The record is a 105-nucleotide sequence from Streptococcus sp. DD10, which matches "Trans-activating crRNA" in Rfam. The pairing is the family consensus, mapped onto this sequence. On this family, see Jinek et al., Science 2012: "A Programmable Dual-RNA-Guided DNA Endonuclease in Adaptive Bacterial Immunity". NCBI's taxonomy places the organism under Bacteria, Bacillati, Bacillota, Streptococcaceae, Streptococcus. About the family: RNA-guided Streptococcus pyogenes Cas9 (SpCas9) is a sequence-specific DNA endonuclease, the Trans-activating CRISPR RNA form an hybrid with the crRNA (crRNA/tracrRNA).
RNA sequence: UGUUGGAAUUAUUCGAAACAACACAGCAAGUUAAAAUAAGGCAGUGAUCUUUGAUCCAGUCCGUACACAACUUGAAAAAGUGAACACCGAUUCGGUGUUUUUUUU
Numbered sequence: 001u002g003u004u005g006g007a008a009u010u011a012u013u014c015g016a017a018a019c020a021a022c023a024c025a026g027c028a029a030g031u032u033a034a035a036a037u038a039a040g041g042c043a044g045u046g047a048u049c050u051u052u053g054a055u056c057c058a059g060u061c062c063g064u065a066c067a068c069a070a071c072u073u074g075a076a077a078a079a080g081u082g083a084a085c086a087c088c089g090a091u092u093c094g095g096u097g098u099u100u101u102u103u104u105u
Base pairs, nucleotide, nucleotide: 001036003034004033005032009026010025012023040062041061070081072079073078083099084098085097086096087095088094089093